Annotation
Small nucleolar RNA SNORD35: an 86-nucleotide RNA from Phascolarctos cinereus. The family's RNA type in Rfam is C/D-box small nucleolar RNA. Lineage of the source: Eukaryota > Opisthokonta > Vertebrata > Theria > Phascolarctos. For this family Rfam cites "Intron-encoded, antisense small nucleolar RNAs: the characterization of nine novel species points to their direct role as guides for the 2'-O-ribose methylation of rRNAs" (Nicoloso et al., J Mol Biol, 1996). Rfam describes the family as follows. U35 is a C/D box snoRNA located in intron 6 of ribosomal protein L13A and intron 3 of ribosomal protein S11 in humans and at homologous positions in mouse and chicken ribosomal protein genes. U35 guides the methylation of 2'-O-ribose sites in 28S rRNA. A search with the family's covariance model found it, with a score of 92 bits. Its family is annotated with nucleolus and RNA processing in the Gene Ontology.
[Rfam]
RNA sequence: GGCAGAUGAUGUUUGUUCUCACGAUGGUCUUCGGAUGCCCCCAGGGGACUGCCGACAAAGCCACAUGGCUCAGCUGAUGCCAGAGG
Numbered sequence: 001g002g003c004a005g006a007u008g009a010u011g012u013u014u015g016u017u018c019u020c021a022c023g024a025u026g027g028u029c030u031u032c033g034g035a036u037g038c039c040c041c042c043a044g045g046g047g048a049c050u051g052c053c054g055a056c057a058a059a060g061c062c063a064c065a066u067g068g069c070u071c072a073g074c075u076g077a078u079g080c081c082a083g084a085g086g
Stems, first nucleotide, its partner, number of pairs: 001081004